[Rfam]
RNA sequence: GUGCCGGCCCUCCGCGACGGCAAGCCGUGAACCCCGCCAGGCCCGGAAGGGAGCAACGGCAGCGGUGUCGCUGGGUGCCGGAGUCAGCUGGUACGGG
Numbered sequence: 001g002u003g004c005c006g007g008c009c010c011u012c013c014g015c016g017a018c019g020g021c022a023a024g025c026c027g028u029g030a031a032c033c034c035c036g037c038c039a040g041g042c043c044c045g046g047a048a049g050g051g052a053g054c055a056a057c058g059g060c061a062g063c064g065g066u067g068u069c070g071c072u073g074g075g076u077g078c079c080g081g082a083g084u085c086a087g088c089u090g091g092u093a094c095g096g097g
Base pairs, nucleotide, nucleotide: 004091005090006089007088008087010083011082012081013080014079015075018073019072020071021070024066025065026064027063028062034059035058036057042051043050044049